Shown here is a 91-nucleotide RNA from Pseudogulbenkiania sp. NH8B, a member of the family "Selenocysteine transfer RNA".
Pairs were carried over by alignment from the consensus structure, which is taken from published work.
NCBI's taxonomy places the organism under Bacteria, Pseudomonadati, Pseudomonadota, Neisseriales, Pseudogulbenkiania.
It scores 76 bits against the family's covariance model.
Rfam 15.1 lists 4,211 matches to the family in 3,344 species.
RNA sequence: GGAAGAGUCUCGCUCCCGGUGGGGCGGCUGAACUUCAAAUUCAGAUGGGGCCGCCAGCGGUCCCGGGAGGGUUCGACUCCCUUACUCUUCC
Number, nucleotide and partner (000 for none) at each position: 001g091002g090003a089004a088005g087006a086007g085008u084009c000010u000011c026012g025013c024014u023015c022016c021017c000018g000019g000020u000021g016022g015023g014024g013025c012026g011027g000028c044029u043030g042031a041032a040033c000034u000035u000036c000037a000038a000039a000040u032041u031042c030043a029044g028045a000046u000047g064048g063049g062050g061051c060052c000053g000054c000055c000056a000057g000058c000059g000060g051061u050062c049063c048064c047065g000066g000067g000068a082069g081070g080071g079072u000073u000074c000075g000076a000077c000078u000079c071080c070081c069082u068083u000084a008085c007086u006087c005088u004089u003090c002091c001